[Rfam]
RNA sequence: CGGGGAUGCAGGCUCCCCGUCAGACGAUCCCCGUCCAAGCCCUGC
Numbered sequence: 001c002g003g004g005g006a007u008g009c010a011g012g013c014u015c016c017c018c019g020u021c022a023g024a025c026g027a028u029c030c031c032c033g034u035c036c037a038a039g040c041c042c043u044g045c
Stems, first nucleotide, its partner, number of pairs: 001019006008045005023035004
Rfam assigns this 45-nucleotide RNA from Tistlia consotensis to the family "chrB-b RNA". It is annotated as a cis-regulatory element. The family's consensus secondary structure is taken from published work.